[Rfam]
RNA sequence: UGCGAUGUGUGCAUUGCAUUGCGACGGGUUACAUCACUAGUCGUGACAUGAUGUAACCCAACGCAGCAUGAUGU
Numbered sequence: 001u002g003c004g005a006u007g008u009g010u011g012c013a014u015u016g017c018a019u020u021g022c023g024a025c026g027g028g029u030u031a032c033a034u035c036a037c038u039a040g041u042c043g044u045g046a047c048a049u050g051a052u053g054u055a056a057c058c059c060a061a062c063g064c065a066g067c068a069u070g071a072u073g074u
Stems, first nucleotide, its partner, number of pairs: 011074004015068003020065004026059011038048001

Rfam assigns this 74-nucleotide RNA sequence from Horornis vulcanius to the family "mir-1397 microRNA precursor family". The family's consensus secondary structure was predicted with RNAalifold.